[Rfam]
RNA sequence: AGCAGGAUCAGGGCUUAGUUGGACUGUGAACACUGUUACAUCCCUGCAUGUUCACAGUGGCUAAGUUCCGCUUCUCUG
Numbered sequence: 001a002g003c004a005g006g007a008u009c010a011g012g013g014c015u016u017a018g019u020u021g022g023a024c025u026g027u028g029a030a031c032a033c034u035g036u037u038a039c040a041u042c043c044c045u046g047c048a049u050g051u052u053c054a055c056a057g058u059g060g061c062u063a064a065g066u067u068c069c070g071c072u073u074c075u076c077u078g
Base pairs, nucleotide, nucleotide: 011068012067013066014065015064016063017062018061019060020059026055027054028053029052030051031050032049